[Rfam]
RNA sequence: UAAACCAUUAAGAACCAUUUGAAUCAAGUAAUGGAAAUGGAAUGAUUCAAAUGGUUCUCAGAA
Numbered sequence: 001u002a003a004a005c006c007a008u009u010a011a012g013a014a015c016c017a018u019u020u021g022a023a024u025c026a027a028g029u030a031a032u033g034g035a036a037a038u039g040g041a042a043u044g045a046u047u048c049a050a051a052u053g054g055u056u057c058u059c060a061g062a063a
Base pairs, nucleotide, nucleotide: 008061009060011058012057013056014055015054016053017052018051019050020049021048022047023046024045025044026043
Notes: Rfam assigns this 63-nucleotide RNA from Prunus mume to the family "Plastid-ccsA-ndhD-1 3UTR RNA". From the family's description: Plastid-ccsA-ndhD-1 is a non-coding RNA (ncRNA) recognised in plastids. It was found in the three prime untranslated region (3UTR) of ccsA and ndhD genes, its 3UTR location suggests a role in transcript maturation. By type it is a cis-regulatory element. A reference for the family is Zandueta-Criado and Bock (2004), "Surprising features of plastid ndhD transcripts: addition of non-encoded nucleotides and polysome association of mRNAs with an unedited start codon", Nucleic Acids Res.